[Rfam]
RNA sequence: CGGUUGGCGGGAGGCUCUGACGCGCGGUCCAAACCCUGGCCGCCGCGACCGCGCCGAGCCUCUGGCGAGACCGACCCGCGCCCAG
Numbered sequence: 001c002g003g004u005u006g007g008c009g010g011g012a013g014g015c016u017c018u019g020a021c022g023c024g025c026g027g028u029c030c031a032a033a034c035c036c037u038g039g040c041c042g043c044c045g046c047g048a049c050c051g052c053g054c055c056g057a058g059c060c061u062c063u064g065g066c067g068a069g070a071c072c073g074a075c076c077c078g079c080g081c082c083c084a085g
Stems, first nucleotide, its partner, number of pairs: 001085001003083001007079005013060003022054008038072002041067004
RNA: c-di-GMP-II-GAG riboswitch aptamer